[Rfam]
This 120-nucleotide RNA sequence from Parafrankia sp. EAN1pec belongs to the Rfam family "Group II catalytic intron D1-D4-2". NCBI's taxonomy places the organism under Bacteria, Bacillati, Actinomycetes, Frankiaceae, Parafrankia. Pairs were carried over by alignment from the consensus structure. The literature on the family includes a 2001 paper in Trends Genet by Bonen and Vogel, "The ins and outs of group II introns". Rfam links the family to the GO term Group II intron splicing. About the family: Group II introns are found in rRNA, tRNA and mRNA of organelles in fungi, plants and protists, and also in mRNA in bacteria.
RNA sequence: GGGUUUUGUGGCCACUCGAAGCCGCCCGACGGGUCGGAGGCUUCAAGCCACCCCGAGCAGCCUUAGCUGACGACUGUGGUGGUGAGCGUCGGGAAAAGGCGCGCCGUGAGCGCGUCAGGC
Numbered sequence: 001g002g003g004u005u006u007u008g009u010g011g012c013c014a015c016u017c018g019a020a021g022c023c024g025c026c027c028g029a030c031g032g033g034u035c036g037g038a039g040g041c042u043u044c045a046a047g048c049c050a051c052c053c054c055g056a057g058c059a060g061c062c063u064u065a066g067c068u069g070a071c072g073a074c075u076g077u078g079g080u081g082g083u084g085a086g087c088g089u090c091g092g093g094a095a096a097a098g099g100c101g102c103g104c105c106g107u108g109a110g111c112g113c114g115u116c117a118g119g120c
Stems, first nucleotide, its partner, number of pairs: 001017004018044006026037004049119001051093002054091003057083002060080003064076003098116006